[Rfam]
RNA sequence: UAACUGUAGUAAUGAAACGUGAAUAUAAUUCCGAAAAUAGGGUUCGGAAGUAUCUACCAGGGACCGUAAAUCUCCUGACUAUGAUGGUAAGCUUUCUUUCA
Dot-bracket structure: .................(....(((...(((((((.......)))))))........((((((.......)).))))..)))....)..............
Numbered sequence: 001u002a003a004c005u006g007u008a009g010u011a012a013u014g015a016a017a018c019g020u021g022a023a024u025a026u027a028a029u030u031c032c033g034a035a036a037a038u039a040g041g042g043u044u045c046g047g048a049a050g051u052a053u054c055u056a057c058c059a060g061g062g063a064c065c066g067u068a069a070a071u072c073u074c075c076u077g078a079c080u081a082u083g084a085u086g087g088u089a090a091g092c093u094u095u096c097u098u099u100c101a
Stems, first nucleotide, its partner, number of pairs: 018087001023082003029049007058077004062072002